[Rfam]
Nucleotides: 065
Base pairs, nucleotide, nucleotide: 012062013024014023025048026047027046029044030043031042049061050060051059
Number, partner (000 for none) and nucleotide at each position: 001000a002000u003000a004000a005000u006000g007000a008000u009000a010000c011000u012062u013024c014023u015000a016000a017000g018000g019000u020000u021000g022000a023014a024013g025048c026047c027046g028000g029044c030043u031042c032000a033000u034000c035000c036000g037000g038000a039000a040000u041000a042031g043030a044029g045000g046027c047026g048025g049061a050060g051059g052000u053000g054000a055000g056000a057000u058000u059051c060050c061049u062012a063000u064000g065000u

Description: Shown here is a 65-nucleotide sequence from Pasteurella bettyae, a member of the family "pemK RNA". The family's consensus secondary structure is taken from published work. NCBI's taxonomy places the organism under Bacteria, Pasteurellales, Pasteurellaceae, Pasteurella, Pasteurella bettyae. The family's RNA type in Rfam is cis-regulatory element.